[Rfam]
RNA: TPP riboswitch aptamer (THI element)
Organism: Paenibacillus sabuli
RNA sequence: UCGCAAUUCCAGGGGAGCUGGAGAGGCCGGCUGAGAGGGUAUCCCGUGAACGAUACCGACCCUUGACCUGAUCUGGAUAAUGCCAGCGUAGGAAUGAGCGGGACAGUCCGC
Numbered sequence: 001u002c003g004c005a006a007u008u009c010c011a012g013g014g015g016a017g018c019u020g021g022a023g024a025g026g027c028c029g030g031c032u033g034a035g036a037g038g039g040u041a042u043c044c045c046g047u048g049a050a051c052g053a054u055a056c057c058g059a060c061c062c063u064u065g066a067c068c069u070g071a072u073c074u075g076g077a078u079a080a081u082g083c084c085a086g087c088g089u090a091g092g093a094a095u096g097a098g099c100g101g102g103a104c105a106g107u108c109c110g111c
Stems, first nucleotide, its partner, number of pairs: 007098003011063004017031005038057005067092004073086004